[Rfam]
RNA sequence: ACGGGUCCGGCUCUACCCCCCCAGAGCCGGACCGGCUGGCGACCCCCGCUACCCCCCCCAGCGGGGGUCGCCACUU
Dot-bracket structure: .(.((((((((((..........)))))))))).)..(((((((((((((.........)))))))))))))....
RNA: 6C RNA
Organism: Streptosporangium album